[Rfam]
A member of the RNA family "Molybdenum/Tungsten riboswitch aptamer (Moco RNA motif)" from Oceanisphaera avium, 152 nucleotides long. Pairs were carried over by alignment from the consensus structure, which is taken from published work. It scores 81 bits against the family's covariance model. The family has 160 seed sequences and 1,248 matches in Rfam 15.1.

RNA sequence: GUUAUGUCAAAACUCCGAGUCGUGUUUGCCUAAGUUAUUGCCCGUUAUGGUGCACUAAUAAGGUGACUCGACCGCUCAGCUUAGGGCUGUAAGGGUAGAGGUAGAAAUGCCUUGGCCUCCCAUUCUUGGAAAGGUGUUUUUAUGUUGGAAUU
Numbered sequence: 001g002u003u004a005u006g007u008c009a010a011a012a013c014u015c016c017g018a019g020u021c022g023u024g025u026u027u028g029c030c031u032a033a034g035u036u037a038u039u040g041c042c043c044g045u046u047a048u049g050g051u052g053c054a055c056u057a058a059u060a061a062g063g064u065g066a067c068u069c070g071a072c073c074g075c076u077c078a079g080c081u082u083a084g085g086g087c088u089g090u091a092a093g094g095g096u097a098g099a100g101g102u103a104g105a106a107a108u109g110c111c112u113u114g115g116c117c118u119c120c121c122a123u124u125c126u127u128g129g130a131a132a133g134g135u136g137u138u139u140u141u142a143u144g145u146u147g148g149a150a151u152u
Base pairs, nucleotide, nucleotide: 004145006143011138012137013136015134016133019072020071021070022069024067025066026065028064029063030062034059035058036057037056077089078088079087080086093118094117095116096115098113099112100111101110102109103108119129120128